The family of this 378-nucleotide sequence from Saccharobesus litoralis is "Bacterial RNase P class A".
By type it is a ribozyme.
The base pairs follow the family's consensus structure, which is taken from published work.
Nucleotides: 378
Base pairs, nucleotide, nucleotide: 001374002373003372004371005370006369007368008367009366010365011363012333013332014331015330016329017328018327020061021060023058024057025056026055027054028053066361067360068359070358071357072356073355074354075237076236077235078234082270083269084268085267087233088232089231090230091229092106093105094104095103096102107121108119109118110117111116122228123227127226128225129222130221144167145166146163147162148161149160150159151158152157175193176192177191178190179189180188194217195215196214197213198212199211200209201208202207241290242289243288244287251281252280253279254278255277256276261275262274263273264272265271297316298315299314300313301312302311303310304309
Number, partner (000 for none) and nucleotide at each position: 001374a002373a003372a004371g005370u006369u007368c008367g009366c010365u011363a012333u013332g014331c015330a016329a017328u018327c019000g020061c021060u022000g023058c024057u025056u026055u027054a028053u029000c030000g031000u032000u033000g034000u035000a036000c037000c038000g039000c040000u041000u042000g043000c044000g045000g046000u047000a048000g049000a050000c051000g052000g053028g054027u055026a056025a057024a058023g059000g060021g061020g062000a063000g064000g065000a066361a067360a068359g069000u070358c071357c072356g073355g074354g075237c076236u077235c078234c079000a080000u081000u082270g083269g084268g085267c086000a087233g088232a089231g090230u091229g092106c093105c094104a095103g096102a097000u098000a099000a100000c101000a102096u103095c104094u105093g106092g107121g108119c109118g110117g111116c112000g113000u114000g115000a116111g117110c118109c119108g120000a121107c122228g123227a124000c125000a126000a127226g128225u129222g130221c131000a132000g133000c134000a135000g136000a137000g138000a139000g140000a141000a142000g143000a144167c145166c146163g147162c148161c149160a150159u151158c152157a153000c154000u155000u156000g157152u158151g159150a160149u161148g162147g163146u164000a165000a166145g167144g168000g169000u170000g171000a172000a173000a174000g175193g176192g177191u178190g179189c180188g181000g182000u183000a184000a185000g186000a187000g188180c189179g190178c191177a192176c193175c194217g195215c196214g197213c198212a199211a200209c201208u202207g203000g204000u205000a206000a207202c208201a209200g210000u211199u212198u213197g214196u215195g216000g217194c218000g219000a220000g221130g222129u223000a224000a225128a226127c227123u228122c229091c230090a231089c232088u233087u234078g235077g236076a237075g238000c239000a240000a241290g242289a243288c244287c245000a246000a247000a248000u249000a250000g251281g252280g253279u254278u255277c256276c257000a258000u259000u260000c261275g262274g263273c264272g265271u266000g267085g268084c269083c270082c271265g272264c273263g274262u275261u276256g277255g278254a279253a280252c281251c282000g283000g284000g285000u286000a287244g288243g289242u290241u291000g292000c293000u294000u295000g296000a297316g298315c299314c300313u301312u302311a303310g304309a305000g306000c307000g308000a309304u310303u311302u312301a313300a314299g315298g316297c317000c318000u319000a320000g321000a322000c323000g324000a325000a326000u327018g328017a329016u330015u331014g332013c333012a334000a335000c336000u337000c338000u339000u340000u341000u342000a343000g344000a345000g346000a347000c348000a349000c350000a351000g352000a353000a354074c355073c356072c357071g358070g359068c360067u361066u362000a363011u364000c365010g366009g367008c368007g369006a370005a371004c372003u373002u374001u375000c376000c377000c378000u